A member of the RNA family "ASpks TB sRNA" from Micromonospora echinofusca, 75 nucleotides long. By type it is an antisense RNA. Rfam 15.1 lists 9,052 matches to the family in 683 species. The match comes from Rfam's covariance-model search (80 bits). Taxonomically the source falls in Micromonospora (Bacteria, Actinomycetota, Micromonosporales, Micromonosporaceae).

RNA sequence: CUUCACCGACCCCAGCAGCAGCGGCCGGUCCUGCGGACGCUCCUGCCCGUACGUGGCCAGCAACGCCUGCGCCUC
Number, nucleotide and partner (000 for none) at each position: 001c000002u000003u000004c000005a000006c000007c000008g000009a000010c000011c000012c000013c000014a000015g025016c024017a000018g000019c000020a000021g000022c000023g000024g016025c015026c000027g000028g000029u000030c000031c071032u000033g000034c000035g000036g000037a000038c065039g064040c000041u000042c000043c060044u059045g058046c000047c056048c055049g054050u000051a000052c000053g000054u049055g048056g047057c000058c045059a044060g043061c000062a000063a000064c039065g038066c000067c000068u000069g000070c000071g031072c000073c000074u000075c000